RNA sequence: GUGAAAGUGAUGAUGCUUUCCCUAGAUGAUCAACUCUGAUUAAAGUGUGCUUUUUCAUUGUUUUCAACAUUUUCUCUUCAGAGAAUAAGGCUAGGAAUCUGAUCCAU
Numbered sequence: 001g002u003g004a005a006a007g008u009g010a011u012g013a014u015g016c017u018u019u020c021c022c023u024a025g026a027u028g029a030u031c032a033a034c035u036c037u038g039a040u041u042a043a044a045g046u047g048u049g050c051u052u053u054u055u056c057a058u059u060g061u062u063u064u065c066a067a068c069a070u071u072u073u074c075u076c077u078u079c080a081g082a083g084a085a086u087a088a089g090g091c092u093a094g095g096a097a098u099c100u101g102a103u104c105c106a107u
Stems, first nucleotide, its partner, number of pairs: 001107003005103001